[Rfam]
RNA sequence: UGUAGUCACUGGCAAACUAAAUGAAAAUUUAGGACGCAAAGCCACCGGUCUAAAGAACGUUAUGUUCCACGACAGCGGGGUUGCUUUA
Numbered sequence: 001u002g003u004a005g006u007c008a009c010u011g012g013c014a015a016a017c018u019a020a021a022u023g024a025a026a027a028u029u030u031a032g033g034a035c036g037c038a039a040a041g042c043c044a045c046c047g048g049u050c051u052a053a054a055g056a057a058c059g060u061u062a063u064g065u066u067c068c069a070c071g072a073c074a075g076c077g078g079g080g081u082u083g084c085u086u087u088a
Stems, first nucleotide, its partner, number of pairs: 012037002017032006040082004045078003048073003055067004
Shown here is an 88-nucleotide RNA sequence from Pseudoalteromonas citrea, a member of the family "c-di-GMP-I riboswitch aptamer". The family's consensus secondary structure is taken from published work. The source organism's lineage runs through Bacteria, Pseudomonadota, Gammaproteobacteria, Alteromonadales and Pseudoalteromonas. It scores 81 bits against the family's covariance model.